Background:
TPP riboswitch aptamer (THI element): a 112-nucleotide RNA from Antarctobacter albus.
RNA sequence: CGGCCUACCUCGGGGUGGCGGCGCAUGAGCCGUCUGAGAUUUCCGUACCACGGAUCAACCCGUUGAACCUGAACCGGUUAACACCGGCGGAGGGAAGGUAUGGGCCCGAUGA
Numbered sequence: 001c002g003g004c005c006u007a008c009c010u011c012g013g014g015g016u017g018g019c020g021g022c023g024c025a026u027g028a029g030c031c032g033u034c035u036g037a038g039a040u041u042u043c044c045g046u047a048c049c050a051c052g053g054a055u056c057a058a059c060c061c062g063u064u065g066a067a068c069c070u071g072a073a074c075c076g077g078u079u080a081a082c083a084c085c086g087g088c089g090g091a092g093g094g095a096a097g098g099u100a101u102g103g104g105c106c107c108g109a110u111g112a
Stems, first nucleotide, its partner, number of pairs: 006100005011062004017034005042054004068093003074087004